RNA: ALIL pseudoknot
RNA sequence: CGCAUAUUUCGCAGCGGCGGAGCUCGACCGCCCGUUCCGCAAAUGAUCGCGUUCAUUGAUGAUCACCGUUGUGUCCAUGGUGUCGGGCCGAUCUGCCGGAUUCUGGAGAUCGCACCA
Numbered sequence: 001c002g003c004a005u006a007u008u009u010c011g012c013a014g015c016g017g018c019g020g021a022g023c024u025c026g027a028c029c030g031c032c033c034g035u036u037c038c039g040c041a042a043a044u045g046a047u048c049g050c051g052u053u054c055a056u057u058g059a060u061g062a063u064c065a066c067c068g069u070u071g072u073g074u075c076c077a078u079g080g081u082g083u084c085g086g087g088c089c090g091a092u093c094u095g096c097c098g099g100a101u102u103c104u105g106g107a108g109a110u111c112g113c114a115c116c117a
Stems, first nucleotide, its partner, number of pairs: 016032005078117005089112002092109003096105001098103001